[Rfam]
RNA: Pyrrolysine insertion sequence mttB
RNA sequence: UAGGCUGAUUCUAAGCUGCCUGAUGCUCAGGCGGCUCACGAAAAAACAAUCACAACAUUACUGCCACAACUAGGAGGAGCAAACACACUAUACGGAGCAG
Numbered sequence: 001u002a003g004g005c006u007g008a009u010u011c012u013a014a015g016c017u018g019c020c021u022g023a024u025g026c027u028c029a030g031g032c033g034g035c036u037c038a039c040g041a042a043a044a045a046a047c048a049a050u051c052a053c054a055a056c057a058u059u060a061c062u063g064c065c066a067c068a069a070c071u072a073g074g075a076g077g078a079g080c081a082a083a084c085a086c087a088c089u090a091u092a093c094g095g096a097g098c099a100g
Stems, first nucleotide, its partner, number of pairs: 003012001025032001033062002077098001080095001